[Rfam]
The record is a 113-nucleotide RNA from Batrachochytrium dendrobatidis, which matches "U5 spliceosomal RNA" in Rfam. By type it is a spliceosomal small nuclear RNA. Lineage of the source: Eukaryota > Opisthokonta > chytridiomyceta > Chytridiomycetes > Batrachochytrium dendrobatidis. The family has 180 seed sequences and 28,527 matches in Rfam 15.1. U5 RNA is a component of both types of known spliceosome. It is one of the family's seed sequences.
RNA sequence: CUUCUCUGAGGCCUUCGCAAAACGUACAACUCUUUCGCCUUUUACUAAAAAGUUCCGUGUAGGGGGCCUCACAUGGAGAAUGUCUCCAAUUUUUCCCAUACCUUGGAGGGUUA
Number, nucleotide and partner (000 for none) at each position: 001c000002u000003u079004c078005u077006c076007u000008g000009a069010g068011g067012c066013c065014u064015u063016c062017g060018c059019a058020a000021a000022a000023c000024g000025u000026a000027c000028a054029a053030c052031u051032c000033u049034u048035u047036c000037g000038c000039c000040u000041u000042u000043u000044a000045c000046u000047a035048a034049a033050a000051a031052g030053u029054u028055c000056c000057g000058u019059g018060u017061a000062g016063g015064g014065g013066g012067c011068c010069u009070c000071a000072c000073a000074u000075g000076g006077a005078g004079a003080a000081u000082g000083u000084c000085u000086c000087c000088a000089a000090u000091u000092u000093u000094u000095c000096c000097c000098a000099u000100a111101c110102c109103u108104u000105g000106g000107a000108g103109g102110g101111u100112u000113a000